[Rfam]
RNA sequence: UUGGCAUGAUGAUGAUAAUUUUAAAUACUUUCAUACGAUUAUUUAUAUGAUGAAAGCAAUCCUCCUACUCAUUCUGA
Number, nucleotide and partner (000 for none) at each position: 001u000002u000003g000004g000005c000006a072007u071008g070009a069010u000011g000012a000013u000014g000015a000016u000017a000018a000019u000020u000021u000022u000023a000024a000025a000026u000027a000028c000029u000030u000031u053032c052033a000034u000035a046036c000037g000038a000039u000040u000041a000042u000043u000044u000045a000046u035047a000048u000049g000050a000051u000052g032053a031054a000055a000056g000057c000058a000059a000060u000061c000062c000063u000064c000065c000066u000067a000068c000069u009070c008071a007072u006073u000074c000075u000076g000077a000
RNA: Small nucleolar RNA Z105